Shown here is a 68-nucleotide RNA from Comamonas testosteroni, a member of the family "ilvH RNA".
The base pairs follow the family's consensus structure, which is taken from published work.
The family's RNA type in Rfam is cis-regulatory element.
Rfam's curators put it in the seed alignment.
RNA sequence: GACGAAUCUAUUGUCCGCCGAGCCUGGCACUUACCGGUGUCAGGGGAGGGCGGCGAAAAGAGGAAUCU
Numbered sequence: 001g002a003c004g005a006a007u008c009u010a011u012u013g014u015c016c017g018c019c020g021a022g023c024c025u026g027g028c029a030c031u032u033a034c035c036g037g038u039g040u041c042a043g044g045g046g047a048g049g050g051c052g053g054c055g056a057a058a059a060g061a062g063g064a065a066u067c068u
Base pairs, nucleotide, nucleotide: 011056012055013054015053016052017051018050019049023044024043025042026041027040028039029038030037031036